[Rfam]
RNA sequence: AAAAAAGCGUAUGAGAGUGGGACAGAAAUAAUAUUUUCUCAAAAUUUAUUUCGUUGUAUCCCCAGCUUGCUUAGCCUGUAGAAUUUCUUUAGGAAAUCCUCUUUGCUGGGCCCCGAACCCCAGCUUGCUUAGCUUGUAGAAUUUCUUUAGGAAAUUCUCUUUGCUGGGGCCCGGCCUACCAGGCAAGGAUGACUAGGUUUGAAAAAAGCUUGAUUCAAGUACAUUUUCAAAUCAGUCAAUUACUAACAAAAUGAUAAAAUAGGCUGAGACAUUUUAUUUU
Numbered sequence: 001a002a003a004a005a006a007g008c009g010u011a012u013g014a015g016a017g018u019g020g021g022a023c024a025g026a027a028a029u030a031a032u033a034u035u036u037u038c039u040c041a042a043a044a045u046u047u048a049u050u051u052c053g054u055u056g057u058a059u060c061c062c063c064a065g066c067u068u069g070c071u072u073a074g075c076c077u078g079u080a081g082a083a084u085u086u087c088u089u090u091a092g093g094a095a096a097u098c099c100u101c102u103u104u105g106c107u108g109g110g111c112c113c114c115g116a117a118c119c120c121c122a123g124c125u126u127g128c129u130u131a132g133c134u135u136g137u138a139g140a141a142u143u144u145c146u147u148u149a150g151g152a153a154a155u156u157c158u159c160u161u162u163g164c165u166g167g168g169g170c171c172c173g174g175c176c177u178a179c180c181a182g183g184c185a186a187g188g189a190u191g192a193c194u195a196g197g198u199u200u201g202a203a204a205a206a207a208g209c210u211u212g213a214u215u216c217a218a219g220u221a222c223a224u225u226u227u228c229a230a231a232u233c234a235g236u237c238a239a240u241u242a243c244u245a246a247c248a249a250a251a252u253g254a255u256a257a258a259a260u261a262g263g264c265u266g267a268g269a270c271a272u273u274u275u276a277u278u279u280u
Base pairs, nucleotide, nucleotide: 001012003010013063017062019060020059022057023056025052026051027050028049029048030047031046033045034044035043036042037041065137066136069133070132071131073129074128075127080100081099083097084096085095086094087093088092105124106123107122108121109120110119111115138158139157140156141155142154143153144152145151160250161249162248163247165245166244167243169241190238191237192236193235194234196233197232198231199230201228202227203226204225205224208220209219210218211217256280257279258278259277260276261275262274263273